[Rfam]
RNA sequence: GGUCGGGAGUGCGGAGGCGAUGCAAUACCUUAACGGGAAAAACCUCCCGCCGUUCUGUGAGACGGUUUCGAGCUCCCGACCUUUUUAUA
Numbered sequence: 001g002g003u004c005g006g007g008a009g010u011g012c013g014g015a016g017g018c019g020a021u022g023c024a025a026u027a028c029c030u031u032a033a034c035g036g037g038a039a040a041a042a043c044c045u046c047c048c049g050c051c052g053u054u055c056u057g058u059g060a061g062a063c064g065g066u067u068u069c070g071a072g073c074u075c076c077c078g079a080c081c082u083u084u085u086u087a088u089a
Stems, first nucleotide, its partner, number of pairs: 001081009013047004028037003049066006

sRNA-Xcc1: an 89-nucleotide RNA from Halodesulfovibrio spirochaetisodalis. Pairs were carried over by alignment from the consensus structure, which was predicted with RNAalifold. Rfam 15.1 lists 421 matches to the family in 299 species. The source organism's lineage runs through Bacteria, Pseudomonadati, Desulfovibrionales, Desulfovibrionaceae and Halodesulfovibrio.